Rfam assigns this 81-nucleotide sequence from Dipodomys ordii to the family "small Cajal body-specific RNA 18".
Rfam classes the family as a small Cajal body RNA.
On this family, see Darzacq et al., EMBO J 2002: "Cajal body-specific small nuclear RNAs: a novel class of 2'-O-methylation and pseudouridylation guide RNAs".
The family's consensus secondary structure was predicted with PFOLD.
From the family's description: scaRNAs are a specific class of small nuclear RNAs which localise to the Cajal bodies and guide the modification of RNA polymerase II transcribed spliceosomal RNAs U1, U2, U4, U5 and U12.

RNA sequence: UCACUGAUGAUGGCAUGAUUGCUGUACAGUCUGAGCUGUGGGAACCAGUUGAUGAAAUAUAUUAAUAGACAGGCUAAGAGA
Numbered sequence: 001u002c003a004c005u006g007a008u009g010a011u012g013g014c015a016u017g018a019u020u021g022c023u024g025u026a027c028a029g030u031c032u033g034a035g036c037u038g039u040g041g042g043a044a045c046c047a048g049u050u051g052a053u054g055a056a057a058u059a060u061a062u063u064a065a066u067a068g069a070c071a072g073g074c075u076a077a078g079a080g081a
Stems, first nucleotide, its partner, number of pairs: 002080001004078002039047003
The organism belongs to Dipodomys, within Eukaryota.